Shown here is a 142-nucleotide RNA sequence from Chinchilla lanigera, a member of the family "small Cajal body-specific RNA 17". About the family: scaRNAs are a specific class of small nuclear RNAs which localise to the Cajal bodies and guide the modification of RNA polymerase II transcribed spliceosomal RNAs U1, U2, U4, U5 and U12. The complete human U12-22/U4-8 scaRNA is composed of two tandem C/D box domains (termed U12-22 and U4-8). Rfam classes the family as a small Cajal body RNA. Taxonomically the source falls in Chinchilla (Eukaryota, Teleostomi, Sarcopterygii, Tetrapoda). The family has 6 seed sequences and 262 matches in Rfam 15.1.
RNA sequence: UUCCAGGUUCCCCCUUACGGCUCCCAGUGAGCCCUCAGUAUUUUCCUUAUAUGAUCAGGCACCACUGUGGGCGGCGCUGCUUGCCUGGAGCCUGAGAGGAUUAUGAAACGUGUCGGGCGAAGUGGAGCGAGGGGGACCUGGC
Numbered sequence: 001u002u003c004c005a006g007g008u009u010c011c012c013c014c015u016u017a018c019g020g021c022u023c024c025c026a027g028u029g030a031g032c033c034c035u036c037a038g039u040a041u042u043u044u045c046c047u048u049a050u051a052u053g054a055u056c057a058g059g060c061a062c063c064a065c066u067g068u069g070g071g072c073g074g075c076g077c078u079g080c081u082u083g084c085c086u087g088g089a090g091c092c093u094g095a096g097a098g099g100a101u102u103a104u105g106a107a108a109c110g111u112g113u114c115g116g117g118c119g120a121a122g123u124g125g126a127g128c129g130a131g132g133g134g135g136a137c138c139u140g141g142c
Stems, first nucleotide, its partner, number of pairs: 002141002005139009020128005055095006062088002067084007